[Rfam]
Background:
The family of this 63-nucleotide RNA from Saimiri boliviensis is "U7 small nuclear RNA". Rfam's curators write: Animal histone pre-mRNAs are spliced by a different mechanism than nuclear pre-mRNAs and self-splicing introns. The base pairs follow the family's consensus structure, which was predicted with PFOLD. The match comes from Rfam's covariance-model search (53 bits). Lineage of the source: Eukaryota > Bilateria > Craniata > Gnathostomata > Saimiri boliviensis. The literature on the family includes a 1994 paper in Nucleic Acids Res by Spycher et al., "3' end processing of mouse histone pre-mRNA: evidence for additional base-pairing between U7 snRNA and pre-mRNA".
RNA sequence: AAAUGUUACAGCUCUUGUAGAAUUUUUCUAGUAGGUUUUCUGUUUUUUAUUGGGAAAACACAC
Numbered sequence: 001a002a003a004u005g006u007u008a009c010a011g012c013u014c015u016u017g018u019a020g021a022a023u024u025u026u027u028c029u030a031g032u033a034g035g036u037u038u039u040c041u042g043u044u045u046u047u048u049a050u051u052g053g054g055a056a057a058a059c060a061c062a063c
Stems, first nucleotide, its partner, number of pairs: 035059007042051001044049001